[Rfam]
RNA sequence: GUGGAAAAGACAGUGAUGUAUUUCCAAGCACAUAUCUGAGUUUUAUGUGUGGAUAGAACUAAGCUGAGUCUUUUCCAC
Numbered sequence: 001g002u003g004g005a006a007a008a009g010a011c012a013g014u015g016a017u018g019u020a021u022u023u024c025c026a027a028g029c030a031c032a033u034a035u036c037u038g039a040g041u042u043u044u045a046u047g048u049g050u051g052g053a054u055a056g057a058a059c060u061a062a063g064c065u066g067a068g069u070c071u072u073u074u075c076c077a078c
Base pairs, nucleotide, nucleotide: 001078002077003076004075005074006073008071009070010069011068

This 78-nucleotide RNA from Castor canadensis belongs to the Rfam family "Small nucleolar RNA SNORD121A". NCBI's taxonomy places the organism under Eukaryota, Euteleostomi, Amniota, Euarchontoglires, Castor. The base pairs follow the family's consensus structure, which was predicted with WAR. Rfam links the family to the GO terms nucleolus and RNA processing.